Shown here is a 298-nucleotide sequence from Pelusios castaneus, a member of the family "Metazoan signal recognition particle RNA". Rfam describes the family as follows. The signal recognition particle (SRP) is a universally conserved ribonucleoprotein. It is involved in the co-translational targeting of proteins to membranes. The eukaryotic SRP consists of a 300-nucleotide 7S RNA and six proteins: SRPs 72, 68, 54, 19, 14, and 9. Archaeal SRP consists of a 7S RNA and homologues of the eukaryotic SRP19 and SRP54 proteins. Pairs were carried over by alignment from the consensus structure, which is taken from published work. The literature on the family includes a 2002 paper in Curr Opin Struct Biol by Wild et al., "Towards the structure of the mammalian signal recognition particle". The match comes from Rfam's covariance-model search (234 bits).
[Rfam]
RNA sequence: GCAAUGCGGUGGUGUGUGCCUGUAAUCCCAGCAACUUGGGAGGCUGAGGCUGGUGGAUCGCUUGAGCUCAGCAGUUCUGGGCUGCAGUGCGCUAUGCCGCUUGGGUGUCCACACUAAGUUUGGCAUCAAUAUGGUGAUCCCUGGGAAGCUGGGGGUCACCAGGUUGCCUAAGGAGGGGUGAACCGGCCCAGGUUGGAAACGGAGCAGGUCAAAACUCCCGUGCCGAUCAGUAGUGGGAUCGCGCCUGUGAAUAGUCACUGCAGCGUAGCCUGGGCAAGACAGUGAGACACAGUCUCUU
Dot-bracket structure: ((.(((((......))))..)....(((..........))).)).(((((((.....(((((...((((((.....(((.(((((((((.(((((.(....(((((((((.(((((.(.(((((((((((.(((((((((((((....))))))))))))).))))((...)).(((((.....((((....(((....)))....))))...))))).))))))).)..)))))))...))))))).).)))))))))))))).))).)))))).....)))))....)))))))..